[Rfam]
RNA sequence: AGCAAAAUGAGGAGCUCAUAUACCUGAAGUAUCUAUGUUGAUACAUCCAUUCAUGGUCUUCAAAGUUCUCUGAUUGCU
Numbered sequence: 001a002g003c004a005a006a007a008u009g010a011g012g013a014g015c016u017c018a019u020a021u022a023c024c025u026g027a028a029g030u031a032u033c034u035a036u037g038u039u040g041a042u043a044c045a046u047c048c049a050u051u052c053a054u055g056g057u058c059u060u061c062a063a064a065g066u067u068c069u070c071u072g073a074u075u076g077c078u
Stems, first nucleotide, its partner, number of pairs: 001078005
Overview
Small nucleolar RNA R160: a 78-nucleotide RNA sequence from Digitaria exilis. The pairing is the family consensus, mapped onto this sequence. It is annotated as a C/D-box small nucleolar RNA. About the family: snoR160 is a C/D box small nucleolar RNA, which acts as a methylation guide for 25S ribosomal RNA in plants. snoR160 has been alternatively named snoZ270 in rice. It scores 84 bits against the family's covariance model.